[Rfam]
RNA sequence: GAAACUUUGCCAACACUCUGGCCUUUAUCCCUCCUCUCGUUGCGAUUGGAAACAUUCCAGGAUAUAGGCCUAUUUUGGUGCAAAGAAGAUUGAACUAUCUUCUGACACGUUACUCACCUCGGCAUCCUGUCCACGUGGGCAGUGGAUGCAGUGGUCCAUCAUUACUGUGUCUACAU
Numbered sequence: 001g002a003a004a005c006u007u008u009g010c011c012a013a014c015a016c017u018c019u020g021g022c023c024u025u026u027a028u029c030c031c032u033c034c035u036c037u038c039g040u041u042g043c044g045a046u047u048g049g050a051a052a053c054a055u056u057c058c059a060g061g062a063u064a065u066a067g068g069c070c071u072a073u074u075u076u077g078g079u080g081c082a083a084a085g086a087a088g089a090u091u092g093a094a095c096u097a098u099c100u101u102c103u104g105a106c107a108c109g110u111u112a113c114u115c116a117c118c119u120c121g122g123c124a125u126c127c128u129g130u131c132c133a134c135g136u137g138g139g140c141a142g143u144g145g146a147u148g149c150a151g152u153g154g155u156c157c158a159u160c161a162u163u164a165c166u167g168u169g170u171c172u173a174c175a176u
Base pairs, nucleotide, nucleotide: 007083008082009081020070021069022068023067024066026064027063028062029061104171105170106169107168117154118153120151122149123148124147125146126145127144
A member of the RNA family "Small nucleolar RNA snR80" from Exophiala aquamarina, 176 nucleotides long. The family has 6 seed sequences and 447 matches in Rfam 15.1. NCBI's taxonomy places the organism under Eukaryota, Dikarya, leotiomyceta, Exophiala, Exophiala aquamarina. The literature on the family includes a 2004 paper in Nucleic Acids Res by Schattner et al., "Genome-wide searching for pseudouridylation guide snoRNAs: analysis of the Saccharomyces cerevisiae genome". Pairs were carried over by alignment from the consensus structure, which was predicted with WAR. A search with the family's covariance model found it, with a score of 45 bits.